[Rfam]
RNA sequence: ACCUUCUUUUUUAAGCUCUGUGCUAAAAUAGCAGAAACUAGUAUCUGCAGUGUCUUAGUCCUUGUAAUAAAGCUGGCAGAGUAAACAAAGAGAAACACAACUGUACAGAUGGUAGAACAACCACAGGUAACUCCAAGGUGUUUUGUUCUAAGAUUUGGUACAAUCAUA
Numbered sequence: 001a002c003c004u005u006c007u008u009u010u011u012u013a014a015g016c017u018c019u020g021u022g023c024u025a026a027a028a029u030a031g032c033a034g035a036a037a038c039u040a041g042u043a044u045c046u047g048c049a050g051u052g053u054c055u056u057a058g059u060c061c062u063u064g065u066a067a068u069a070a071a072g073c074u075g076g077c078a079g080a081g082u083a084a085a086c087a088a089a090g091a092g093a094a095a096c097a098c099a100a101c102u103g104u105a106c107a108g109a110u111g112g113u114a115g116a117a118c119a120a121c122c123a124c125a126g127g128u129a130a131c132u133c134c135a136a137g138g139u140g141u142u143u144u145g146u147u148c149u150a151a152g153a154u155u156u157g158g159u160a161c162a163a164u165c166a167u168a
Stems, first nucleotide, its partner, number of pairs: 018081002021078005029070001031068001034062001037059005043053002102162005107156003123139001
RNA: Small nucleolar RNA SNORA81
Organism: Camelus dromedarius